[Rfam]
The record is a 99-nucleotide sequence from Jeotgalicoccus saudimassiliensis, which matches "Guanidine-I riboswitch aptamer" in Rfam. The pairing is the family consensus, mapped onto this sequence. Rfam links the family to the GO term regulation of gene expression.

RNA sequence: UAAGAAGUUCUCUAGGGUUCCGUUAAAUUAUUUAAGUCUGGACCGAGAGAGGACGCUGGAAAGAGUUCCAGUACACGGAAGGACAAAAGCCUGGGAGAG
Numbered sequence: 001u002a003a004g005a006a007g008u009u010c011u012c013u014a015g016g017g018u019u020c021c022g023u024u025a026a027a028u029u030a031u032u033u034a035a036g037u038c039u040g041g042a043c044c045g046a047g048a049g050a051g052g053a054c055g056c057u058g059g060a061a062a063g064a065g066u067u068c069c070a071g072u073a074c075a076c077g078g079a080a081g082g083a084c085a086a087a088a089g090c091c092u093g094g095g096a097g098a099g
Stems, first nucleotide, its partner, number of pairs: 007054006015044002020041002022038001023035005055072007074094001076097001080092003